[Rfam]
This 138-nucleotide RNA sequence from Loxia curvirostra belongs to the Rfam family "U8 small nucleolar RNA".
The organism belongs to Loxia, within Eukaryota.
By type it is a C/D-box small nucleolar RNA.
For this family Rfam cites "The U8 snoRNA gene family: identification and characterization of distinct, functional U8 genes in Xenopus" (Peculis et al., Gene, 2001).
Pairs were carried over by alignment from the consensus structure, which is taken from published work.
RNA sequence: UCGUCAGUGCGGUACAUCCUGACCUGCCCCGCCUUGCGGGCAGCGCGUGAUGAGAGCGUGCGUGAUGACGUUUGGUGAUUACGUCACGCCGGUGGCGCGGGUCGCUGCAACAAAGCCCGCGCCGCCUUCGACUCUGAC
Numbered sequence: 001u002c003g004u005c006a007g008u009g010c011g012g013u014a015c016a017u018c019c020u021g022a023c024c025u026g027c028c029c030c031g032c033c034u035u036g037c038g039g040g041c042a043g044c045g046c047g048u049g050a051u052g053a054g055a056g057c058g059u060g061c062g063u064g065a066u067g068a069c070g071u072u073u074g075g076u077g078a079u080u081a082c083g084u085c086a087c088g089c090c091g092g093u094g095g096c097g098c099g100g101g102u103c104g105c106u107g108c109a110a111c112a113a114a115g116c117c118c119g120c121g122c123c124g125c126c127u128u129c130g131a132c133u134c135u136g137a138c
Base pairs, nucleotide, nucleotide: 024043025042026041028040029039030038031037032036070089071088073086074085075084076081094126095122096121097120098119099118100117101116